[Rfam]
RNA sequence: UACGUUAAGGGCAAACUAUCCGAAAGGUUAGGACGCAAAGCUACGGGUCUAAAGUCAUAACGACCAUGAUCGCCGGGCUGCCGAAA
Numbered sequence: 001u002a003c004g005u006u007a008a009g010g011g012c013a014a015a016c017u018a019u020c021c022g023a024a025a026g027g028u029u030a031g032g033a034c035g036c037a038a039a040g041c042u043a044c045g046g047g048u049c050u051a052a053a054g055u056c057a058u059a060a061c062g063a064c065c066a067u068g069a070u071c072g073c074c075g076g077g078c079u080g081c082c083g084a085a086a
Base pairs, nucleotide, nucleotide: 001086003083004082011036012035016031017030018029020027021026034072039079040078041077042076044075045074046073047070048069049068
About this RNA:
A member of the RNA family "c-di-GMP-I-GGC riboswitch aptamer" from Brevibacillus sp. SYP-B805, 86 nucleotides long. The source organism's lineage runs through Bacteria, Bacillati, Bacillota, Bacilli and Brevibacillus. The literature on the family includes a 2012 paper in Biochemistry by Smith et al., "Structural and biochemical characterization of linear dinucleotide analogues bound to the c-di-GMP-I aptamer". A search with the family's covariance model found it, with a score of 73 bits.